[Rfam]
Rfam assigns this 33-nucleotide sequence to the family "S4-Bacteroidia ribosomal protein leader". For this family Rfam cites "Discovery of 20 novel ribosomal leader candidates in bacteria and archaea" (Eckert and Weinberg, BMC Microbiol, 2020). It is one of the family's seed sequences. Clan: Ribosomal Protein S4 Leader clan.
RNA sequence: GAUUGCACAUUAUCCUCUCUGCAGUCGCGGCUG
Numbered sequence: 001g002a003u004u005g006c007a008c009a010u011u012a013u014c015c016u017c018u019c020u021g022c023a024g025u026c027g028c029g030g031c032u033g
Stems, first nucleotide, its partner, number of pairs: 001026007